[Rfam]
RNA sequence: CCGGCAGUUUGCCAAACUUGUCGAAAGACAGGGACGGAAAGCCCAGGUGUCUAACCGAAUGUGUUUAUUCGCAGGAUCGACCGGCUGCGGGG
Numbered sequence: 001c002c003g004g005c006a007g008u009u010u011g012c013c014a015a016a017c018u019u020g021u022c023g024a025a026a027g028a029c030a031g032g033g034a035c036g037g038a039a040a041g042c043c044c045a046g047g048u049g050u051c052u053a054a055c056c057g058a059a060u061g062u063g064u065u066u067a068u069u070c071g072c073a074g075g076a077u078c079g080a081c082c083g084g085c086u087g088c089g090g091g092g
Stems, first nucleotide, its partner, number of pairs: 012037002017032006040086004046082003049077003056071006
RNA: c-di-GMP-I riboswitch aptamer